[Rfam]
RNA sequence: UGUGGCCUGUGAUGAUUAAAAAUUUGCCUACAUUGUCCGAUGGUCAUGACCAAUCCAUGAUGAAGGAUUUGUAACUCUUCUGAGGCCACA
Numbered sequence: 001u002g003u004g005g006c007c008u009g010u011g012a013u014g015a016u017u018a019a020a021a022a023u024u025u026g027c028c029u030a031c032a033u034u035g036u037c038c039g040a041u042g043g044u045c046a047u048g049a050c051c052a053a054u055c056c057a058u059g060a061u062g063a064a065g066g067a068u069u070u071g072u073a074a075c076u077c078u079u080c081u082g083a084g085g086c087c088a089c090a
Stems, first nucleotide, its partner, number of pairs: 001090002004087004
A member of the RNA family "Small nucleolar RNA SNORD34" from Actinidia chinensis, 90 nucleotides long. The literature on the family includes a 2003 paper in Nucleic Acids Res by Chen et al., "The high diversity of snoRNAs in plants: identification and comparative study of 120 snoRNA genes from Oryza sativa". The family's consensus secondary structure was predicted with PFOLD. Its Rfam clan is "SNORD34 clan". Rfam's curators write: snoRNA U34 is found in intron 5 of the ribosomal protein L13a gene in humans. Its family is annotated with RNA processing and nucleolus in the Gene Ontology. A search with the family's covariance model found it, with a score of 44 bits.